[Rfam]
RNA sequence: GGGUGCUUGAGGCUAUCUGUCUCAGGCAUGAACACCAAAAGGCAGAUAGAGAAAAGCCCCAGUUAACAUUACGCGUCCGGCAAGACGCUUAACAUUAAUCUGAGGCCAUAUCUAUGCUCUACACACGUAGGUUAGCCUCUUACGUGCCGAAAGGCAAGGAGAAGCAGGCUAUGAAG
Numbered sequence: 001g002g003g004u005g006c007u008u009g010a011g012g013c014u015a016u017c018u019g020u021c022u023c024a025g026g027c028a029u030g031a032a033c034a035c036c037a038a039a040a041g042g043c044a045g046a047u048a049g050a051g052a053a054a055a056g057c058c059c060c061a062g063u064u065a066a067c068a069u070u071a072c073g074c075g076u077c078c079g080g081c082a083a084g085a086c087g088c089u090u091a092a093c094a095u096u097a098a099u100c101u102g103a104g105g106c107c108a109u110a111u112c113u114a115u116g117c118u119c120u121a122c123a124c125a126c127g128u129a130g131g132u133u134a135g136c137c138u139c140u141u142a143c144g145u146g147c148c149g150a151a152a153g154g155c156a157a158g159g160a161g162a163a164g165c166a167g168g169c170u171a172u173g174a175a176g
Base pairs, nucleotide, nucleotide: 001060002059003058005057006056007055008054013049014048015047016046017045018044019043020042021041022040026036061101062100084096085095102139103138104137105136106135110132111131112130113129114128117127143168145166147164

sok antitoxin (CssrC): a 176-nucleotide sequence from Escherichia coli. Taxonomically the source falls in Escherichia coli (Bacteria, Gammaproteobacteria, Enterobacterales, Enterobacteriaceae). Rfam describes the family as follows. Also identified in Shigella as CssrC. The base pairs follow the family's consensus structure, which is taken from published work. It is annotated as an antitoxin RNA.